[Rfam]
RNA sequence: UCUUCCGAAGUUUCUCUCAGGAUAGCUGGAAUUCAUGGUGCGUAGCACUGUCUCAGUUUUACCAGGUAAAGCUAAUGAUUAGAGGUAUCGGUGGGCUGUGCCUGUUGACCUAUUCUCAAACUUUAAAUGGGUAAGACCCCGUCUGUUGCUUAACUGAACAUUCGGGUUGAAUGUGAAUUCUUAGUGGGCCAUUUUUGGUAAGCAAUAAUGGCGAUGAGGGAUGCACCUAACGCUGGGUUAAGGUGCCUAAAUACCUGCUCAUCAGAUACCAUAAAAGGUGUUGGUUCAUAUAGACAGCAGGACGGUGGUCAUGGAAGUCGAAAUCCGCUAAGGAGUGUGUAACAACUCACCUGCCGAAUGAACUGGCCCUGAAAAUGGAUGGCGCUCAAGCAGGUUACCGAAACCCGGCCAUUGUCGCAGAUUCUCGGUGACAAUGUGUAGGAAGACGUGGGCGUUGCGGCGAAGUGUGGCGCGUGAGCCCACAUGGAGCGGCGCCUAGUGCCGAU
Numbered sequence: 001u002c003u004u005c006c007g008a009a010g011u012u013u014c015u016c017u018c019a020g021g022a023u024a025g026c027u028g029g030a031a032u033u034c035a036u037g038g039u040g041c042g043u044a045g046c047a048c049u050g051u052c053u054c055a056g057u058u059u060u061a062c063c064a065g066g067u068a069a070a071g072c073u074a075a076u077g078a079u080u081a082g083a084g085g086u087a088u089c090g091g092u093g094g095g096c097u098g099u100g101c102c103u104g105u106u107g108a109c110c111u112a113u114u115c116u117c118a119a120a121c122u123u124u125a126a127a128u129g130g131g132u133a134a135g136a137c138c139c140c141g142u143c144u145g146u147u148g149c150u151u152a153a154c155u156g157a158a159c160a161u162u163c164g165g166g167u168u169g170a171a172u173g174u175g176a177a178u179u180c181u182u183a184g185u186g187g188g189c190c191a192u193u194u195u196u197g198g199u200a201a202g203c204a205a206u207a208a209u210g211g212c213g214a215u216g217a218g219g220g221a222u223g224c225a226c227c228u229a230a231c232g233c234u235g236g237g238u239u240a241a242g243g244u245g246c247c248u249a250a251a252u253a254c255c256u257g258c259u260c261a262u263c264a265g266a267u268a269c270c271a272u273a274a275a276a277g278g279u280g281u282u283g284g285u286u287c288a289u290a291u292a293g294a295c296a297g298c299a300g301g302a303c304g305g306u307g308g309u310c311a312u313g314g315a316a317g318u319c320g321a322a323a324u325c326c327g328c329u330a331a332g333g334a335g336u337g338u339g340u341a342a343c344a345a346c347u348c349a350c351c352u353g354c355c356g357a358a359u360g361a362a363c364u365g366g367c368c369c370u371g372a373a374a375a376u377g378g379a380u381g382g383c384g385c386u387c388a389a390g391c392a393g394g395u396u397a398c399c400g401a402a403a404c405c406c407g408g409c410c411a412u413u414g415u416c417g418c419a420g421a422u423u424c425u426c427g428g429u430g431a432c433a434a435u436g437u438g439u440a441g442g443a444a445g446a447c448g449u450g451g452g453c454g455u456u457g458c459g460g461c462g463a464a465g466u467g468u469g470g471c472g473c474g475u476g477a478g479c480c481c482a483c484a485u486g487g488a489g490c491g492g493c494g495c496c497u498a499g500u501g502c503c504g505a506u
Stems, first nucleotide, its partner, number of pairs: 001446006011024001013022003028181006057136007069124001070122002076118003081113001083111003088108006095101001139165003144160004188212006195205003217228003232409005238403001242399003251396001253395001256392003276370003280367010297354005303327003309321002328332001333348001337346002410436009447501001449498010465485002472479002
Annotation:
This 506-nucleotide part of an RNA from Theileria parva belongs to the Rfam family "Eukaryotic large subunit ribosomal RNA". Its family is annotated with structural constituent of ribosome and ribosome in the Gene Ontology. The source organism's lineage runs through Eukaryota, Sar, Aconoidasida, Piroplasmida and Theileria.